[Rfam]
RNA sequence: CCAGCGCAUGCGGGAGAGACUGCUCUUGAAGGGCAGCGCCGAAGGAGCAACAGCCCCGGAAACUCUCAGGCAACCGGACCGUUUGCGCCAA
Numbered sequence: 001c002c003a004g005c006g007c008a009u010g011c012g013g014g015a016g017a018g019a020c021u022g023c024u025c026u027u028g029a030a031g032g033g034c035a036g037c038g039c040c041g042a043a044g045g046a047g048c049a050a051c052a053g054c055c056c057c058g059g060a061a062a063c064u065c066u067c068a069g070g071c072a073a074c075c076g077g078a079c080c081g082u083u084u085g086c087g088c089c090a091a
Stems, first nucleotide, its partner, number of pairs: 006086003010082004020036004038071003041067002045065003051058001

Glycine riboswitch aptamer: a 91-nucleotide RNA from Vreelandella subglaciescola. Lineage of the source: Bacteria > Pseudomonadati > Pseudomonadota > Halomonadaceae > Vreelandella. Its family is annotated with glycine biosynthetic process in the Gene Ontology. A search with the family's covariance model found it, with a score of 70 bits. The pairing is the family consensus, mapped onto this sequence.